[Rfam]
drum RNA: a 117-nucleotide RNA. The sequence is in the family's curated seed alignment. Firmicutes, Bacteroidetes (1 example), Proteobacteria (2 examples), Spirochaetes (2 examples).
RNA sequence: AAGCGCAGAAGCAUAGCAGCGUACCGGCAAGCCUUGUUAUGCGAAGCUUUCAGUAGGGGUUGUGCAGCAACCUCAAGCCGGAGUAGGCGCAGCUUGCGCCAAACGAAAAUGCUCAAA
Numbered sequence: 001a002a003g004c005g006c007a008g009a010a011g012c013a014u015a016g017c018a019g020c021g022u023a024c025c026g027g028c029a030a031g032c033c034u035u036g037u038u039a040u041g042c043g044a045a046g047c048u049u050u051c052a053g054u055a056g057g058g059g060u061u062g063u064g065c066a067g068c069a070a071c072c073u074c075a076a077g078c079c080g081g082a083g084u085a086g087g088c089g090c091a092g093c094u095u096g097c098g099c100c101a102a103a104c105g106a107a108a109a110u111g112c113u114c115a116a117a
Stems, first nucleotide, its partner, number of pairs: 001049004011042009021032002024081004064112003086100006